[Rfam]
RNA sequence: UGGCUGUGAUGACAGAUUACAUUUCUCGAUUCUGAGAUAUUAAAGUUAUGGACCAAAUUGAUGACCUUUUGUGCGUGUCUGAGCCAA
Numbered sequence: 001u002g003g004c005u006g007u008g009a010u011g012a013c014a015g016a017u018u019a020c021a022u023u024u025c026u027c028g029a030u031u032c033u034g035a036g037a038u039a040u041u042a043a044a045g046u047u048a049u050g051g052a053c054c055a056a057a058u059u060g061a062u063g064a065c066c067u068u069u070u071g072u073g074c075g076u077g078u079c080u081g082a083g084c085c086a087a
Stems, first nucleotide, its partner, number of pairs: 001086004
Overview:
The record is an 87-nucleotide RNA from Cocos nucifera, which matches "small nucleolar RNA snoR126" in Rfam. A reference for the family is Chen and Wu (2009), "Mining small RNA sequencing data: a new approach to identify small nucleolar RNAs in Arabidopsis", Nucleic Acids Res. Taxonomically the source falls in Cocos (Eukaryota, Embryophyta, Magnoliopsida, Arecaceae). Gene Ontology terms of the family: nucleolus and RNA processing.